A member of the RNA family "Small nucleolar RNA snoR136" from Cicer arietinum, 140 nucleotides long. Its family is annotated with RNA processing and nucleolus in the Gene Ontology. The family has 8 seed sequences and 452 matches in Rfam 15.1. The literature on the family includes a 2009 paper in Nucleic Acids Res by Chen and Wu, "Mining small RNA sequencing data: a new approach to identify small nucleolar RNAs in Arabidopsis". The match comes from Rfam's covariance-model search (82 bits).
[Rfam]
RNA sequence: UUGGCUUCAAAUUUUUGUAUUAUUCACGCUUCCACUUUUUAGUGUGGUUUGCAAUGUUCAAUUGAAGCUUAGAAUUGUGUUCCCCUCGCUAUCCGAUGCUCCAAAUUGAUAUUGCAUUUGGACGUCGGGGAACAAAAUUU
Numbered sequence: 001u002u003g004g005c006u007u008c009a010a011a012u013u014u015u016u017g018u019a020u021u022a023u024u025c026a027c028g029c030u031u032c033c034a035c036u037u038u039u040u041a042g043u044g045u046g047g048u049u050u051g052c053a054a055u056g057u058u059c060a061a062u063u064g065a066a067g068c069u070u071a072g073a074a075u076u077g078u079g080u081u082c083c084c085c086u087c088g089c090u091a092u093c094c095g096a097u098g099c100u101c102c103a104a105a106u107u108g109a110u111a112u113u114g115c116a117u118u119u120g121g122a123c124g125u126c127g128g129g130g131a132a133c134a135a136a137a138u139u140u
Stems, first nucleotide, its partner, number of pairs: 001072002003069003008064003012060001015056001018053001025051002028048003032044001079133007087124002092122005103110001